A member of the RNA family "mir-7398 microRNA precursor family" from Vombatus ursinus, 59 nucleotides long. Rfam 15.1 lists 132 matches to the family in 4 species. The organism belongs to Vombatus, within Eukaryota.

RNA sequence: UGUGUAGAGAGAAGAAAUAUGCCGUGUUCUCUCUUGGUAAAUUUCUUCCCUCUCACAAU
Number, nucleotide and partner (000 for none) at each position: 001u000002g056003u055004g054005u000006a053007g052008a051009g050010a000011g048012a047013a046014g045015a044016a043017a042018u000019a000020u000021g038022c037023c036024g000025u000026g000027u000028u000029c000030u000031c000032u000033c000034u000035u000036g023037g022038u021039a000040a000041a000042u017043u016044u015045c014046u013047u012048c011049c000050c009051u008052c007053u006054c004055a003056c002057a000058a000059u000